Shown here is an 81-nucleotide RNA from Saccoglossus kowalevskii, a member of the family "mir-31 microRNA precursor family". For this family Rfam cites "The small RNA profile during Drosophila melanogaster development" (Aravin et al., Dev Cell, 2003). Its family is annotated with RISC complex and gene silencing by miRNA in the Gene Ontology. The source organism's lineage runs through Eukaryota, Metazoa, Deuterostomia, Hemichordata and Saccoglossus.
RNA sequence: AAAUUUAGUGGAGGCAAGAUGUUGGCAUAGCUGUUUCGAUUGAACAGUCAGCUGUGUCCUCAUAUUGCCCUUUCUUUGUUU
Numbered sequence: 001a002a003a004u005u006u007a008g009u010g011g012a013g014g015c016a017a018g019a020u021g022u023u024g025g026c027a028u029a030g031c032u033g034u035u036u037c038g039a040u041u042g043a044a045c046a047g048u049c050a051g052c053u054g055u056g057u058c059c060u061c062a063u064a065u066u067g068c069c070c071u072u073u074c075u076u077u078g079u080u081u
Base pairs, nucleotide, nucleotide: 007075008074010072011071013069014068015067016066017065019063020062021061024058025057026056027055028054029053030052031051
The family has 75 seed sequences and 1,181 matches in Rfam 15.1. Clan: mir-31 microRNA precursor family.